[Rfam]
RNA sequence: ACGGCAGGUCGACCUGCCGUGUUUUAUCGCUUGUGGGGACGACCCCG
Numbered sequence: 001a002c003g004g005c006a007g008g009u010c011g012a013c014c015u016g017c018c019g020u021g022u023u024u025u026a027u028c029g030c031u032u033g034u035g036g037g038g039a040c041g042a043c044c045c046c047g
Stems, first nucleotide, its partner, number of pairs: 001020008034047005

The family of this 47-nucleotide RNA from Ottowia beijingensis is "Guanidine-II riboswitch aptamer (mini-ykkC)". The base pairs follow the family's consensus structure, which is taken from published work. Rfam links the family to the GO term regulation of gene expression. The match comes from Rfam's covariance-model search (32 bits).